[Rfam]
RNA sequence: AGUAACACCCAUAAUUGGAGUUGUACCCCAACCUGGAACUACUUUACCAUAUUCAGCAUUU
Numbered sequence: 001a002g003u004a005a006c007a008c009c010c011a012u013a014a015u016u017g018g019a020g021u022u023g024u025a026c027c028c029c030a031a032c033c034u035g036g037a038a039c040u041a042c043u044u045u046a047c048c049a050u051a052u053u054c055a056g057c058a059u060u061u
Stems, first nucleotide, its partner, number of pairs: 017045005023039002026036002
RNA: Plastid-psbN 5UTR RNA